[Rfam]
Rfam assigns this 77-nucleotide sequence from Pseudaminobacter salicylatoxidans to the family "Makes More Granules Regulator RNA (mmgR)". NCBI's taxonomy places the organism under Bacteria, Pseudomonadati, Pseudomonadota, Hyphomicrobiales, Pseudaminobacter. From the family's description: SuhB later renamed mmgR (makes more granules regulator) was a putative non-coding RNA found multiple times in the Agrobacterium tumefaciens genome and related alpha-proteobacteria. Rfam links the family to the GO terms DNA-templated transcription, termination, response to nitrogen compound and protein binding.
RNA sequence: UGUCCAUGCCCUUCUUGGGCGUUUCCUCCCUAGACUUCCACCGCGUUGUGCAAGCAGCGCGGUUUUUUUUGAGGAAU
Numbered sequence: 001u002g003u004c005c006a007u008g009c010c011c012u013u014c015u016u017g018g019g020c021g022u023u024u025c026c027u028c029c030c031u032a033g034a035c036u037u038c039c040a041c042c043g044c045g046u047u048g049u050g051c052a053a054g055c056a057g058c059g060c061g062g063u064u065u066u067u068u069u070u071g072a073g074g075a076a077u
Stems, first nucleotide, its partner, number of pairs: 008020004041062008
Rfam 15.1 lists 1,791 matches to the family in 918 species.